A member of the RNA family "Bacterial large subunit ribosomal RNA" from Pseudonocardiaceae bacterium YIM PH 21723, 586 nucleotides of a longer RNA. Clan: LSU clan. The match comes from Rfam's covariance-model search (2824 bits).
RNA sequence: CGCGCGGCAGGACGGAAAGACCCCGGGACCUUUACUAUAGCUUGGUAUUGGUGUUCGGUUCGGCUUGUGUAGGAUAGGUGGGAGACUGUGAAGUCAUGACGCCAGUCAUGGUGGAGUCGCUGUUGAAAUACCACUCUGGUCGAAUUGGAUGUCUAACCUCGGGCCAUGAUCUGGUUCAGGGACAGUGCCUGGUGGGUAGUUUAACUGGGGCGGUUGCCUCCCAAAGAGUAACGGAGGCGCCCAAAGGUUCCCUCAGCCUGGUUGGCAAUCAGGUGUUGAGUGUAAGUGCACAAGGGAGCUUGACUGUGAGACCGACAGGUCGAGCAGGGACGAAAGUCGGGACUAGUGAUCCGGCACUGGCUUGUGGAAGCGGUGUCGCUCAACGGAUAAAAGGUACCCCGGGGAUAACAGGCUGAUCUUGCCCAAGAGUCCAUAUCGACGGCAUGGUUUGGCACCUCGAUGUCGGCUCGUCGCAUCCUGGGGCUGGAGUAGGUCCCAAGGGUUGGGCUGUUCGCCCAUUAAAGCGGUACGCGAGCUGGGUUUAGAACGUCGUGAGACAGUUCGGUCCCUAUCCGCCGCGCGCGUU
Numbered sequence: 001c002g003c004g005c006g007g008c009a010g011g012a013c014g015g016a017a018a019g020a021c022c023c024c025g026g027g028a029c030c031u032u033u034a035c036u037a038u039a040g041c042u043u044g045g046u047a048u049u050g051g052u053g054u055u056c057g058g059u060u061c062g063g064c065u066u067g068u069g070u071a072g073g074a075u076a077g078g079u080g081g082g083a084g085a086c087u088g089u090g091a092a093g094u095c096a097u098g099a100c101g102c103c104a105g106u107c108a109u110g111g112u113g114g115a116g117u118c119g120c121u122g123u124u125g126a127a128a129u130a131c132c133a134c135u136c137u138g139g140u141c142g143a144a145u146u147g148g149a150u151g152u153c154u155a156a157c158c159u160c161g162g163g164c165c166a167u168g169a170u171c172u173g174g175u176u177c178a179g180g181g182a183c184a185g186u187g188c189c190u191g192g193u194g195g196g197u198a199g200u201u202u203a204a205c206u207g208g209g210g211c212g213g214u215u216g217c218c219u220c221c222c223a224a225a226g227a228g229u230a231a232c233g234g235a236g237g238c239g240c241c242c243a244a245a246g247g248u249u250c251c252c253u254c255a256g257c258c259u260g261g262u263u264g265g266c267a268a269u270c271a272g273g274u275g276u277u278g279a280g281u282g283u284a285a286g287u288g289c290a291c292a293a294g295g296g297a298g299c300u301u302g303a304c305u306g307u308g309a310g311a312c313c314g315a316c317a318g319g320u321c322g323a324g325c326a327g328g329g330a331c332g333a334a335a336g337u338c339g340g341g342a343c344u345a346g347u348g349a350u351c352c353g354g355c356a357c358u359g360g361c362u363u364g365u366g367g368a369a370g371c372g373g374u375g376u377c378g379c380u381c382a383a384c385g386g387a388u389a390a391a392a393g394g395u396a397c398c399c400c401g402g403g404g405a406u407a408a409c410a411g412g413c414u415g416a417u418c419u420u421g422c423c424c425a426a427g428a429g430u431c432c433a434u435a436u437c438g439a440c441g442g443c444a445u446g447g448u449u450u451g452g453c454a455c456c457u458c459g460a461u462g463u464c465g466g467c468u469c470g471u472c473g474c475a476u477c478c479u480g481g482g483g484c485u486g487g488a489g490u491a492g493g494u495c496c497c498a499a500g501g502g503u504u505g506g507g508c509u510g511u512u513c514g515c516c517c518a519u520u521a522a523a524g525c526g527g528u529a530c531g532c533g534a535g536c537u538g539g540g541u542u543u544a545g546a547a548c549g550u551c552g553u554g555a556g557a558c559a560g561u562u563c564g565g566u567c568c569c570u571a572u573c574c575g576c577c578g579c580g581c582g583c584g585u586u
Base pairs, nucleotide, nucleotide: 001582002581003580004579005578006577007576008575010574011573012572014569015568022403023402024401025400026399027398028395029394030393031392032391034200035199036198037197041192042191044189045188046187047186050153051152052151053150054149055148056147057146058145059144060143061142062141063140064139065138067136077135078134079133080132081131084118085117086116093112094111095110096109097108098107099106100105157180158179159178161177162176163175164174165173166172203215204214205213206212216238217237218236219235220234221233239384241341242340247299248298249297250296251295252294253279254278256274257273258272259271260270261269280289281288304327305326306325307324310321311320312319329338330337331336352378353377354376355375356374357373358372360371361370412453413452414451416450417447418446420444421443422442423441427437428436464539465537466536467535468534469531470528471527472526473525474524477502478501480497481496482495483494484493485492504518505517506516507515508514545563546562547561548560549558550557551556
Dot-bracket structure: ((((((((.(((.((......(((((((((((.((((...((.((((..((((((((((((((((.(.........(((((..(((......((((((((....))))))))...)))............)))))).))))))))))))))))...(((.((((((.....))))))))).....)))).))....))))..((((.....))))((((((...........))))))(.((....((((((((.((((((.......))))))...))((......))....))))))....((((..(((......)))..)))).(((....))).))..........(((((((.((........))))))))).....)......)))))..))))))........(((.(((.((((...((.......))...)))).))..))))..........(((((((((((..((.((((((......))))))...)).(((((.....))))).....)))))..)..)))).).....(((((((....))).))))....))..)))))))))))....